RNA: ALIL pseudoknot
RNA sequence: GUCUUCUUUCUUCGCGCGGGAGCUCGACCCGCGACUUCCGUUCUAGUGGCCUUUAUCGAUGAGCAUCGCUCACGGUUCGGGGUCGAGCCAAUCUGCCGGGUGCUCACCGAGCACGGGUGCCGGAUUGCCCCG
Numbered sequence: 001g002u003c004u005u006c007u008u009u010c011u012u013c014g015c016g017c018g019g020g021a022g023c024u025c026g027a028c029c030c031g032c033g034a035c036u037u038c039c040g041u042u043c044u045a046g047u048g049g050c051c052u053u054u055a056u057c058g059a060u061g062a063g064c065a066u067c068g069c070u071c072a073c074g075g076u077u078c079g080g081g082g083u084c085g086a087g088c089c090a091a092u093c094u095g096c097c098g099g100g101u102g103c104u105c106a107c108c109g110a111g112c113a114c115g116g117g118u119g120c121c122g123g124a125u126u127g128c129c130c131c132g
Stems, first nucleotide, its partner, number of pairs: 016032005078132005089127002092124004097119002